[Rfam]
RNA sequence: GGAGGUGUAGGGGCCCCGGUGGGUUUCACCGUCUUCAAAACGGCUGGGGGGCCGCUCGGCGCGGUCCCUGGUGGGUUCGACUCCCAUACGCCUCU
Numbered sequence: 001g002g003a004g005g006u007g008u009a010g011g012g013g014c015c016c017c018g019g020u021g022g023g024u025u026u027c028a029c030c031g032u033c034u035u036c037a038a039a040a041c042g043g044c045u046g047g048g049g050g051g052c053c054g055c056u057c058g059g060c061g062c063g064g065u066c067c068c069u070g071g072u073g074g075g076u077u078c079g080a081c082u083c084c085c086a087u088a089c090g091c092c093u094c095u
Stems, first nucleotide, its partner, number of pairs: 001095009011026006029043004047069007072086004
Dot-bracket structure: (((((((((.((((((....))))))..((((.......))))...(((((((.........)))))))..((((.......)))))))))))))

The record is a 95-nucleotide RNA from Ktedonobacteria bacterium brp13, which matches "Selenocysteine transfer RNA" in Rfam. Clan: tRNA clan. Gene Ontology term of the family: triplet codon-amino acid adaptor activity. The source organism's lineage runs through Bacteria, Bacillati, Chloroflexota and Ktedonobacteria.